[Rfam]
RNA sequence: UACAUAGCGUGUGCGGUUCUCCUGACUGAUCUGCCGUACACAGCUUAAAAGAAGGAGGUUCAGUCUUUCCCCUGCUUGGGGUGCAGCAUUGUGGAGACGUGCUGUAAUGCGGCGAUCCCAGGAUCCCGCGAGAGUCCCGAUUGCGGAGGCACGGGGCCCGAAGCAAGUAUAUGGCA
Numbered sequence: 001u002a003c004a005u006a007g008c009g010u011g012u013g014c015g016g017u018u019c020u021c022c023u024g025a026c027u028g029a030u031c032u033g034c035c036g037u038a039c040a041c042a043g044c045u046u047a048a049a050a051g052a053a054g055g056a057g058g059u060u061c062a063g064u065c066u067u068u069c070c071c072c073u074g075c076u077u078g079g080g081g082u083g084c085a086g087c088a089u090u091g092u093g094g095a096g097a098c099g100u101g102c103u104g105u106a107a108u109g110c111g112g113c114g115a116u117c118c119c120a121g122g123a124u125c126c127c128g129c130g131a132g133a134g135u136c137c138c139g140a141u142u143g144c145g146g147a148g149g150c151a152c153g154g155g156g157c158c159c160g161a162a163g164c165a166a167g168u169a170u171a172u173g174g175c176a
Base pairs, nucleotide, nucleotide: 009041010040011039012038013037014036015035016034017033069081070080071079072078073165074164075163076162077161082106083105084104085103086102087101088100089099091098092097109129110128111127112126114125115124116123117122132159134157135156136155137154138153139152142151143150144149
Rfam assigns this 176-nucleotide RNA to the family "malK-I RNA".
The family's consensus secondary structure is taken from published work.
It is annotated as a cis-regulatory element.